[Rfam]
RNA sequence: GAAGUGCGCCAGGCCGCCGCCGGUGCAAGCGUGGCAACACGGCACUGGAGGAACGUCCGGACUGCACAGGGCAGCGUAGCAGGUAACACCUGUCCACCGUGAGGUGAGGAUCAGAGCAACAGAGACGAGUCGCAACCAGCCCCCGGGCCGGCUGCGGGUGAAACGGGCAAUCUCUACGCGCAGCAAUACCAAAUAGGCAUGCGUUGAACUGGCUCCGGCGAGCAUGCGGGUAGGUAGCACCGAGCCGGUUGGGUGACCACCGGCCCAGAUUAAUGGCGGUCACAUGGCCUUUGCGGGCCAUGCACAGAAUCCGGCGUAUCGGCGCGCUUCACAC
Numbered sequence: 001g002a003a004g005u006g007c008g009c010c011a012g013g014c015c016g017c018c019g020c021c022g023g024u025g026c027a028a029g030c031g032u033g034g035c036a037a038c039a040c041g042g043c044a045c046u047g048g049a050g051g052a053a054c055g056u057c058c059g060g061a062c063u064g065c066a067c068a069g070g071g072c073a074g075c076g077u078a079g080c081a082g083g084u085a086a087c088a089c090c091u092g093u094c095c096a097c098c099g100u101g102a103g104g105u106g107a108g109g110a111u112c113a114g115a116g117c118a119a120c121a122g123a124g125a126c127g128a129g130u131c132g133c134a135a136c137c138a139g140c141c142c143c144c145g146g147g148c149c150g151g152c153u154g155c156g157g158g159u160g161a162a163a164c165g166g167g168c169a170a171u172c173u174c175u176a177c178g179c180g181c182a183g184c185a186a187u188a189c190c191a192a193a194u195a196g197g198c199a200u201g202c203g204u205u206g207a208a209c210u211g212g213c214u215c216c217g218g219c220g221a222g223c224a225u226g227c228g229g230g231u232a233g234g235u236a237g238c239a240c241c242g243a244g245c246c247g248g249u250u251g252g253g254u255g256a257c258c259a260c261c262g263g264c265c266c267a268g269a270u271u272a273a274u275g276g277c278g279g280u281c282a283c284a285u286g287g288c289c290u291u292u293g294c295g296g297g298c299c300a301u302g303c304a305c306a307g308a309a310u311c312c313g314g315c316g317u318a319u320c321g322g323c324g325c326g327c328u329u330c331a332c333a334c
Stems, first nucleotide, its partner, number of pairs: 001330010011319001012281007020048007053317003057314005062183004069215004074179005079093005094108001095106004109174002114172002116168002131157001132155003136151002139148003187236004197227006244264005250259003
RNA: Bacterial RNase P class A